Shown here is a 304-nucleotide RNA sequence from Triplophysa rosa, a member of the family "Nuclear RNase P". The literature on the family includes a 2005 paper in RNA by Marquez et al., "Structural implications of novel diversity in eucaryal RNase P RNA". About the family: Ribonuclease P (RNase P) is a ubiquitous endoribonuclease, found in archaea, bacteria and eukarya as well as chloroplasts and mitochondria. Its best characterised activity is the generation of mature 5'-ends of tRNAs by cleaving the 5'-leader elements of precursor-tRNAs. Cellular RNase Ps are ribonucleoproteins.
RNA sequence: GCGGUAGGAAGCUCACUGUAGAGGUCACGUGCCGAGUGUUCGUCACUCAACCAAUCACCUCGGGGAAGGUCUGAGACAAGAGCCAAUCGCUGUCCUCACAGGACAUCAUCUGACUAGAUGAGCGAAUGCACAGAGAAUUGGGUCAAAGCGCGGUGUUCUCGCACGAGACGUUGAUCGUUGCGGAUUCAGCACGUCAACCGAUGCGAUCCCCGCUGACUUGGAAACGUUCGCGGCUGGCGCUAUGAGUUCGAUGUGUGAGCUAGUGCAGAGUACUAGAACCCAAUUCAGACUACUCUCCCUCCGC
Numbered sequence: 001g002c003g004g005u006a007g008g009a010a011g012c013u014c015a016c017u018g019u020a021g022a023g024g025u026c027a028c029g030u031g032c033c034g035a036g037u038g039u040u041c042g043u044c045a046c047u048c049a050a051c052c053a054a055u056c057a058c059c060u061c062g063g064g065g066a067a068g069g070u071c072u073g074a075g076a077c078a079a080g081a082g083c084c085a086a087u088c089g090c091u092g093u094c095c096u097c098a099c100a101g102g103a104c105a106u107c108a109u110c111u112g113a114c115u116a117g118a119u120g121a122g123c124g125a126a127u128g129c130a131c132a133g134a135g136a137a138u139u140g141g142g143u144c145a146a147a148g149c150g151c152g153g154u155g156u157u158c159u160c161g162c163a164c165g166a167g168a169c170g171u172u173g174a175u176c177g178u179u180g181c182g183g184a185u186u187c188a189g190c191a192c193g194u195c196a197a198c199c200g201a202u203g204c205g206a207u208c209c210c211c212g213c214u215g216a217c218u219u220g221g222a223a224a225c226g227u228u229c230g231c232g233g234c235u236g237g238c239g240c241u242a243u244g245a246g247u248u249c250g251a252u253g254u255g256u257g258a259g260c261u262a263g264u265g266c267a268g269a270g271u272a273c274u275a276g277a278a279c280c281c282a283a284u285u286c287a288g289a290c291u292a293c294u295c296u297c298c299c300u301c302c303g304c
Base pairs, nucleotide, nucleotide: 001304002303003302004301007298008297009296012259013258014257015256016255021061022060023059024058034048035047036046037045038044071288072287073286074285075284081235082234083233084232091105092104093103094102095101106121107120108119109118110117111116122231123230124229125228126227127226128225142217143216144215260276261275262274263273264272265271266270

By type it is a ribozyme. The family has 116 seed sequences and 3,848 matches in Rfam 15.1. Pairs were carried over by alignment from the consensus structure, which is taken from published work.